[Rfam]
RNA sequence: AAAUGGUUGGACUCCUUUUAAGAUUAGAGCUCAAUUUGUAAUUUAUAAUUGGCUUAACCCUACCGCAUGAACCGAACUUGAUACAAGUGCGGUAGGGGUAAAUUCUCCGCAUUCGGUGCG
Numbered sequence: 001a002a003a004u005g006g007u008u009g010g011a012c013u014c015c016u017u018u019u020a021a022g023a024u025u026a027g028a029g030c031u032c033a034a035u036u037u038g039u040a041a042u043u044u045a046u047a048a049u050u051g052g053c054u055u056a057a058c059c060c061u062a063c064c065g066c067a068u069g070a071a072c073c074g075a076a077c078u079u080g081a082u083a084c085a086a087g088u089g090c091g092g093u094a095g096g097g098g099u100a101a102a103u104u105c106u107c108c109g110c111a112u113u114c115g116g117u118g119c120g
Stems, first nucleotide, its partner, number of pairs: 025057001027055003032051005058097011071117006108120003